[Rfam]
RNA sequence: CGGCGGCAGCUCAGCGUGUGUCGUACUGAUAGUGUUAUCACUAGCUAUCAUAAGACACACGCGGCUAUCGCCG
Numbered sequence: 001c002g003g004c005g006g007c008a009g010c011u012c013a014g015c016g017u018g019u020g021u022c023g024u025a026c027u028g029a030u031a032g033u034g035u036u037a038u039c040a041c042u043a044g045c046u047a048u049c050a051u052a053a054g055a056c057a058c059a060c061g062c063g064g065c066u067a068u069c070g071c072c073g
Stems, first nucleotide, its partner, number of pairs: 001073006008066004014062003019057004027050005